[Rfam]
This 95-nucleotide RNA sequence from Myotis lucifugus belongs to the Rfam family "Small nucleolar RNA SNORD91 family".
It is one of the family's seed sequences.
Its family is annotated with nucleolus and RNA processing in the Gene Ontology.
The organism belongs to Myotis, within Eukaryota.
A reference for the family is Huttenhofer et al. (2001), "RNomics: an experimental approach that identifies 201 candidates for novel, small, non-messenger RNAs in mouse", EMBO J.
RNA sequence: UUUAGAAGCCAAUGAUGUGUUUAUUCAAAAUGUCUGAACCUGUCUGAAGCAUCCCAGUGAUGCUACCUCUGUGUGGUGCUGAGGUUUCUCUGCCA
Numbered sequence: 001u002u003u004a005g006a007a008g009c010c011a012a013u014g015a016u017g018u019g020u021u022u023a024u025u026c027a028a029a030a031u032g033u034c035u036g037a038a039c040c041u042g043u044c045u046g047a048a049g050c051a052u053c054c055c056a057g058u059g060a061u062g063c064u065a066c067c068u069c070u071g072u073g074u075g076g077u078g079c080u081g082a083g084g085u086u087u088c089u090c091u092g093c094c095a
Stems, first nucleotide, its partner, number of pairs: 004089007